[Rfam]
Annotation: Shown here is a 178-nucleotide RNA, a member of the family "Group II catalytic intron D1-D4-7". About the family: Group II introns are found in rRNA, tRNA and mRNA of organelles in fungi, plants and protists, and also in mRNA in bacteria. The sequence is in the family's curated seed alignment. For this family Rfam cites "The ins and outs of group II introns" (Bonen and Vogel, Trends Genet, 2001).
RNA sequence: CCCGGCGUUCUGCCGCCGGUACCCUACCCGGACAUGCGUCACUGGUAACCCUCCGACUUUGCUCAGGGCAGGCUGGUGGGGUGUGAAGCUCCGGGGACAAAGGUAUCCCUCAUUCGAAGGAAUGGCAACGAGACCGCGAGGCGAUGUUGUGACUGUCAGCACCAAGACGGUCGGGGGC
Dot-bracket structure: .((((((......))))))........((((((((((.((((((((.........................)))))))).)))))....)))))...............((((((....))))))((((....((....))....))))..((((((........)))))).......
Numbered sequence: 001c002c003c004g005g006c007g008u009u010c011u012g013c014c015g016c017c018g019g020u021a022c023c024c025u026a027c028c029c030g031g032a033c034a035u036g037c038g039u040c041a042c043u044g045g046u047a048a049c050c051c052u053c054c055g056a057c058u059u060u061g062c063u064c065a066g067g068g069c070a071g072g073c074u075g076g077u078g079g080g081g082u083g084u085g086a087a088g089c090u091c092c093g094g095g096g097a098c099a100a101a102g103g104u105a106u107c108c109c110u111c112a113u114u115c116g117a118a119g120g121a122a123u124g125g126c127a128a129c130g131a132g133a134c135c136g137c138g139a140g141g142c143g144a145u146g147u148u149g150u151g152a153c154u155g156u157c158a159g160c161a162c163c164a165a166g167a168c169g170g171u172c173g174g175g176g177g178c
Stems, first nucleotide, its partner, number of pairs: 002019006028094005033085005039079008110125006126149004134141002152171006